[Rfam]
RNA sequence: GCACUCGAAACGCUCCACGGGCAGGAGCGGGGGACCCAGGUCGAUCGCCGGUCCCAGCGCCGUCACAGGCGCGAUCCGGCUCGGGGUGAAGUCGCACCACGCGCGACCGGGCAUCCUCGUGCCCGAACCCGACAGCUCACCUCGCAGGCGUCGCAGAGGAACACC
Numbered sequence: 001g002c003a004c005u006c007g008a009a010a011c012g013c014u015c016c017a018c019g020g021g022c023a024g025g026a027g028c029g030g031g032g033g034a035c036c037c038a039g040g041u042c043g044a045u046c047g048c049c050g051g052u053c054c055c056a057g058c059g060c061c062g063u064c065a066c067a068g069g070c071g072c073g074a075u076c077c078g079g080c081u082c083g084g085g086g087u088g089a090a091g092u093c094g095c096a097c098c099a100c101g102c103g104c105g106a107c108c109g110g111g112c113a114u115c116c117u118c119g120u121g122c123c124c125g126a127a128c129c130c131g132a133c134a135g136c137u138c139a140c141c142u143c144g145c146a147g148g149c150g151u152c153g154c155a156g157a158g159g160a161a162c163a164c165c
Base pairs, nucleotide, nucleotide: 005025006024027145028144029143030142031141032140037083084130085129086128092106093105094104095103109124110123111122112121

About this RNA: Shown here is a 165-nucleotide sequence from Streptomyces sp. 846.5, a member of the family "c-di-AMP riboswitch aptamer (ydaO/yuaA leader)". The match comes from Rfam's covariance-model search (55 bits). NCBI's taxonomy places the organism under Bacteria, Bacillati, Kitasatosporales, Streptomycetaceae, Streptomyces. This family represents a conserved RNA structure found upstream of the ydaO and yuaA genes in Bacillus subtilis and related genes in other bacteria. The base pairs follow the family's consensus structure.